[Rfam]
RNA sequence: ACAACCGAAUCAAUGACCGUUCGUAUAACCCCGCGAAGAUGGGCGGGGGUCUCUACGGGAAGCCGAACUUCCUUGCUACGAAUAUCGGAAGCGUCUGG
Numbered sequence: 001a002c003a004a005c006c007g008a009a010u011c012a013a014u015g016a017c018c019g020u021u022c023g024u025a026u027a028a029c030c031c032c033g034c035g036a037a038g039a040u041g042g043g044c045g046g047g048g049g050u051c052u053c054u055a056c057g058g059g060a061a062g063c064c065g066a067a068c069u070u071c072c073u074u075g076c077u078a079c080g081a082a083u084a085u086c087g088g089a090a091g092c093g094u095c096u097g098g
Base pairs, nucleotide, nucleotide: 019083020082021081022080023079024078025077029048030047031046032045033044034043057073058072059071060070061069062068
A member of the RNA family "Purine riboswitch aptamer" from Cohnella xylanilytica, 98 nucleotides long. The source organism's lineage runs through Bacteria, Bacillati, Bacillota, Paenibacillaceae and Cohnella. A search with the family's covariance model found it, with a score of 46 bits. Rfam's curators write: Riboswitches are metabolite binding domains within certain messenger RNAs that serve as precision sensors for their corresponding targets.